[Rfam]
RNA sequence: UGGAGGGGUCGUGACUGGCGUUCAGGUGGGAUCACCACCAGGAAGCGACCGAUAAGAAGUGACCGCUGGACCGUACGCCUGGGUCCGGGUC
Numbered sequence: 001u002g003g004a005g006g007g008g009u010c011g012u013g014a015c016u017g018g019c020g021u022u023c024a025g026g027u028g029g030g031a032u033c034a035c036c037a038c039c040a041g042g043a044a045g046c047g048a049c050c051g052a053u054a055a056g057a058a059g060u061g062a063c064c065g066c067u068g069g070a071c072c073g074u075a076c077g078c079c080u081g082g083g084u085c086c087g088g089g090u091c
Stems, first nucleotide, its partner, number of pairs: 004053001007050006015042002017079005026038004068086005